Shown here is a 245-nucleotide RNA sequence from Geosporobacter ferrireducens, a member of the family "raiA RNA". It scores 172 bits against the family's covariance model. The family's consensus secondary structure is taken from published work. By type it is a riboswitch.
[Rfam]
RNA sequence: AUAUUUUAGGUCUGUGGUUGCAAGUCCAAGCCAGUCGCAGGCAAAGGGACCCACGUAAGGUAAUUAAAAAUAAGAUUACUGAGCAUGGUGCGGCUUAGGGGUAAGACCUGCCAGGUUCUUGUUCAAAUGCAUUUCUAUGGAAAUCAUUGCUUGAGAAAACUGAGAGAGGUAGUAGUGACGGCGAACCCGGAGCGAACCUUCCAGCAGGCGAGUGUGGGGUCAAAGACCAGGUCAGCUAAGAAUAU
Numbered sequence: 001a002u003a004u005u006u007u008a009g010g011u012c013u014g015u016g017g018u019u020g021c022a023a024g025u026c027c028a029a030g031c032c033a034g035u036c037g038c039a040g041g042c043a044a045a046g047g048g049a050c051c052c053a054c055g056u057a058a059g060g061u062a063a064u065u066a067a068a069a070a071u072a073a074g075a076u077u078a079c080u081g082a083g084c085a086u087g088g089u090g091c092g093g094c095u096u097a098g099g100g101g102u103a104a105g106a107c108c109u110g111c112c113a114g115g116u117u118c119u120u121g122u123u124c125a126a127a128u129g130c131a132u133u134u135c136u137a138u139g140g141a142a143a144u145c146a147u148u149g150c151u152u153g154a155g156a157a158a159a160c161u162g163a164g165a166g167a168g169g170u171a172g173u174a175g176u177g178a179c180g181g182c183g184a185a186c187c188c189g190g191a192g193c194g195a196a197c198c199u200u201c202c203a204g205c206a207g208g209c210g211a212g213u214g215u216g217g218g219g220u221c222a223a224a225g226a227c228c229a230g231g232u233c234a235g236c237u238a239a240g241a242a243u244a245u
Stems, first nucleotide, its partner, number of pairs: 001245005006239004012235003015229005028215001030213001031041001033095007050088002058080002062076001064074001086222001107208005112162003116158001166201004175193002179189003
Dot-bracket structure: (((((((((..((((((((........(.([.(((((((.]........((......((..(.(.........).)..)).....[)))))))))...........((((((((.(.........................................).)))...((((.....((..(((.....)))..))....))))..)))))....).)......]..)))))...))))))).)))))